Rfam assigns this 151-nucleotide sequence to the family "Group II catalytic intron D1-D4-7". Pairs were carried over by alignment from the consensus structure.

RNA sequence: CCUGUUGUUUCGUCAACAGUAGCCUAUGGGAGCGUGCGAUAGUUAGCAAUGAGGUCGUGCGAUAGCAGAACCAACAAUGAAGCCCUUCCGAAAGGAGAAGUCAGAACCGCGAGGGAACGACAACUGCCGUUAGUAUCGAAUGGCAGGGGAG
Numbered sequence: 001c002c003u004g005u006u007g008u009u010u011c012g013u014c015a016a017c018a019g020u021a022g023c024c025u026a027u028g029g030g031a032g033c034g035u036g037c038g039a040u041a042g043u044u045a046g047c048a049a050u051g052a053g054g055u056c057g058u059g060c061g062a063u064a065g066c067a068g069a070a071c072c073a074a075c076a077a078u079g080a081a082g083c084c085c086u087u088c089c090g091a092a093a094g095g096a097g098a099a100g101u102c103a104g105a106a107c108c109g110c111g112a113g114g115g116a117a118c119g120a121c122a123a124c125u126g127c128c129g130u131u132a133g134u135a136u137c138g139a140a141u142g143g144c145a146g147g148g149g150a151g
Base pairs, nucleotide, nucleotide: 002019003018004017005016006015007014028072029071033061034060035059036058037057038056039055040054044051045050086097087096088095089094100121101120102119107114108113126144127143128142129141130140131139
Group II introns are found in rRNA, tRNA and mRNA of organelles in fungi, plants and protists, and also in mRNA in bacteria.